RNA sequence: AUAUGAAUUAUGCUUUAUGAUCAACUCGGUUAGAAAAGCGGCUCCACCGCUCCGAGGCACAGGGUAGUACUCAGUUAAUAUGCAUAAGGAUACUUUUGCAAAAAGGCUGUUAAUCAUUAGCGAUAAUGAUUAAGAAGAAGAAAAUCCUCAACAGUAAACCUGUGGCGCAAAGUUGAUCGUAUUGAAAAGCACGGAACUUCCGGGUGCAAUAAUACACGCUCGCAGUGCGAGAAUAAACCUGAAAGCUUAUCGGCGUGGCAACCGAUGAUUACUCAGGUAAAGCCAUCAAUGCACUUUGCCUUGACUUCGAGAAAUCGGAUAUAACGGAAGACUCCGGUAAUGGUAGCCGAAUGGCAAUAAAUGAACUUUUACCUAAUUGAAUGGUCGGUGACAUUUGCAGGGAACCUAUCCUGUGUAAGAUGUGGUUUUUAAAACCGGGGUAAGUAGUUAGGGGUAGCUCCCCGAAGCUCAAGCUUAUCUCCUUACUUGCUGAAGAUUAAUGCGUGAAAACAAUGUACGGCGAAGGUCGGACCAUAAAGCAUAGUUGAU
Numbered sequence: 001a002u003a004u005g006a007a008u009u010a011u012g013c014u015u016u017a018u019g020a021u022c023a024a025c026u027c028g029g030u031u032a033g034a035a036a037a038g039c040g041g042c043u044c045c046a047c048c049g050c051u052c053c054g055a056g057g058c059a060c061a062g063g064g065u066a067g068u069a070c071u072c073a074g075u076u077a078a079u080a081u082g083c084a085u086a087a088g089g090a091u092a093c094u095u096u097u098g099c100a101a102a103a104a105g106g107c108u109g110u111u112a113a114u115c116a117u118u119a120g121c122g123a124u125a126a127u128g129a130u131u132a133a134g135a136a137g138a139a140g141a142a143a144a145u146c147c148u149c150a151a152c153a154g155u156a157a158a159c160c161u162g163u164g165g166c167g168c169a170a171a172g173u174u175g176a177u178c179g180u181a182u183u184g185a186a187a188a189g190c191a192c193g194g195a196a197c198u199u200c201c202g203g204g205u206g207c208a209a210u211a212a213u214a215c216a217c218g219c220u221c222g223c224a225g226u227g228c229g230a231g232a233a234u235a236a237a238c239c240u241g242a243a244a245g246c247u248u249a250u251c252g253g254c255g256u257g258g259c260a261a262c263c264g265a266u267g268a269u270u271a272c273u274c275a276g277g278u279a280a281a282g283c284c285a286u287c288a289a290u291g292c293a294c295u296u297u298g299c300c301u302u303g304a305c306u307u308c309g310a311g312a313a314a315u316c317g318g319a320u321a322u323a324a325c326g327g328a329a330g331a332c333u334c335c336g337g338u339a340a341u342g343g344u345a346g347c348c349g350a351a352u353g354g355c356a357a358u359a360a361a362u363g364a365a366c367u368u369u370u371a372c373c374u375a376a377u378u379g380a381a382u383g384g385u386c387g388g389u390g391a392c393a394u395u396u397g398c399a400g401g402g403a404a405c406c407u408a409u410c411c412u413g414u415g416u417a418a419g420a421u422g423u424g425g426u427u428u429u430u431a432a433a434a435c436c437g438g439g440g441u442a443a444g445u446a447g448u449u450a451g452g453g454g455u456a457g458c459u460c461c462c463c464g465a466a467g468c469u470c471a472a473g474c475u476u477a478u479c480u481c482c483u484u485a486c487u488u489g490c491u492g493a494a495g496a497u498u499a500a501u502g503c504g505u506g507a508a509a510a511c512a513a514u515g516u517a518c519g520g521c522g523a524a525g526g527u528c529g530g531a532c533c534a535u536a537a538a539g540c541a542u543a544g545u546u547g548a549u
Stems, first nucleotide, its partner, number of pairs: 007546001009544001014539003025056005037051005058164006073108004081100004086095003110133010137149002140146002174510001177506001183500001185498001188497001189491001192336004197330006203295006219231004237278006247268007256285004296357005306319005340394001346389005377472003400412002416485003419436001424435001437482004443476002447469001449466001451463004518529004
Dot-bracket structure: ......(.(....(((........(((((.......(((((.....)))))))))).((((((.........((((....((((.(((....))).))))....)))).((((((((((....))))))))))...((.((...)).)).........)))))).........(..(.....(.(..((..((((.((((((((((((..........((((.....)))).....((((((....(((((((..[[[[..)))))))....))))))...]]]]....))))))[[[[[.....(((((....))))).....))))))..))))...(.....(((((..]]]]]...................[[[.....)))))....).....((.........))...((((....(..........))((((..((..(.(.((((.....))))..)..)]]]..))..))))))).....).....)).).....)...).......((((....)))).......)))....).)...
RNA: ROOL RNA